[Rfam]
RNA: Small nucleolar RNA Z122
RNA sequence: UUUGGGAAAUGAUUAGAUCUCAUUUUUGAAUGAAGGAAUCACCCUGAUUUGUGCUGAAUGAGUUUUGCAUGUCAGUCUGAUCCCAAA
Numbered sequence: 001u002u003u004g005g006g007a008a009a010u011g012a013u014u015a016g017a018u019c020u021c022a023u024u025u026u027u028g029a030a031u032g033a034a035g036g037a038a039u040c041a042c043c044c045u046g047a048u049u050u051g052u053g054c055u056g057a058a059u060g061a062g063u064u065u066u067g068c069a070u071g072u073c074a075g076u077c078u079g080a081u082c083c084c085a086a087a
Base pairs, nucleotide, nucleotide: 001087002086003085004084005083006082007081
Dot-bracket structure: (((((((.........................................................................)))))))